[Rfam]
RNA: Plastid-psbA-1 3UTR RNA
RNA sequence: UCGAAGCUCCAUCUAGAAAUGGAUAAAAUUUGAAUCUGAAAGUAUACGAGUUUUUGAAAGUAAAGGAGCAAUAUCAACAGAGUACAUAUUGCUCCUUU
Numbered sequence: 001u002c003g004a005a006g007c008u009c010c011a012u013c014u015a016g017a018a019a020u021g022g023a024u025a026a027a028a029u030u031u032g033a034a035u036c037u038g039a040a041a042g043u044a045u046a047c048g049a050g051u052u053u054u055u056g057a058a059a060g061u062a063a064a065g066g067a068g069c070a071a072u073a074u075c076a077a078c079a080g081a082g083u084a085c086a087u088a089u090u091g092c093u094c095c096u097u098u
Base pairs, nucleotide, nucleotide: 008023009022010021011020012019062098063097064096065095066094067093068092069091070090071089072088073087074086077083078082